[Rfam]
RNA sequence: GGGGAUGUUCUGGAUUCGACAGGUAUAGUUUGAGUUCGGAUUGCGCUUCGUAGGUUGUGUCUACGUAAAAACGCUCAGUUUAAAUUAUAACUGCAAAAAAUAAUAACAAUUCUUACGCUUUAGCUGCCUAAUAAGCGCUUAACGUAGAUCCUCCCAGGAUCGUCCAUGUUCUGGAUCUGGGUCCUAAAUUUAGUGGACUUACGCUCAAAGCUUCCACCUGGAGUUGCGAGAAGAGACUAAUCAGGUUAGUCAUUGCUGGGUGCCCUGUCAUACGGCGUUUGCAAUGAUGAAAUUUAAAUAGUAUGAAUAUGAGCGUAGAUAUCCGAGGGGCAAUAUGCUUGGACGCGAGUUCGACUCUCGCCAUCUCCAUUA
Numbered sequence: 001g002g003g004g005a006u007g008u009u010c011u012g013g014a015u016u017c018g019a020c021a022g023g024u025a026u027a028g029u030u031u032g033a034g035u036u037c038g039g040a041u042u043g044c045g046c047u048u049c050g051u052a053g054g055u056u057g058u059g060u061c062u063a064c065g066u067a068a069a070a071a072c073g074c075u076c077a078g079u080u081u082a083a084a085u086u087a088u089a090a091c092u093g094c095a096a097a098a099a100a101u102a103a104u105a106a107c108a109a110u111u112c113u114u115a116c117g118c119u120u121u122a123g124c125u126g127c128c129u130a131a132u133a134a135g136c137g138c139u140u141a142a143c144g145u146a147g148a149u150c151c152u153c154c155c156a157g158g159a160u161c162g163u164c165c166a167u168g169u170u171c172u173g174g175a176u177c178u179g180g181g182u183c184c185u186a187a188a189u190u191u192a193g194u195g196g197a198c199u200u201a202c203g204c205u206c207a208a209a210g211c212u213u214c215c216a217c218c219u220g221g222a223g224u225u226g227c228g229a230g231a232a233g234a235g236a237c238u239a240a241u242c243a244g245g246u247u248a249g250u251c252a253u254u255g256c257u258g259g260g261u262g263c264c265c266u267g268u269c270a271u272a273c274g275g276c277g278u279u280u281g282c283a284a285u286g287a288u289g290a291a292a293u294u295u296a297a298a299u300a301g302u303a304u305g306a307a308u309a310u311g312a313g314c315g316u317a318g319a320u321a322u323c324c325g326a327g328g329g330g331c332a333a334u335a336u337g338c339u340u341g342g343a344c345g346c347g348a349g350u351u352c353g354a355c356u357c358u359c360g361c362c363a364u365c366u367c368c369a370u371u372a
Base pairs, nucleotide, nucleotide: 001368002367003366004365005364006363007362020341021340022339023338024337025336026335027334035327036326037325038324039323040322041321044315045314046313047312048311049065050064051063052062053061057074058073059072060071120142121141122140123139125137126136127135147183148182149181150180151179154174155173156172157171158170159169160168162198163197164196165195166194167193204230205229206228209225210224211223212222216246217245218244219243220242221241249288250287251286252285253284254283255282256281258279262276263275264274268306269305270304273301345361346360347359348358349357
Shown here is a 372-nucleotide RNA from Lactiplantibacillus plantarum, a member of the family "transfer-messenger RNA". The sequence is in the family's curated seed alignment. On this family, see Williams and Bartel, RNA 1996: "Phylogenetic analysis of tmRNA secondary structure". Rfam classes the family as a non-coding RNA gene.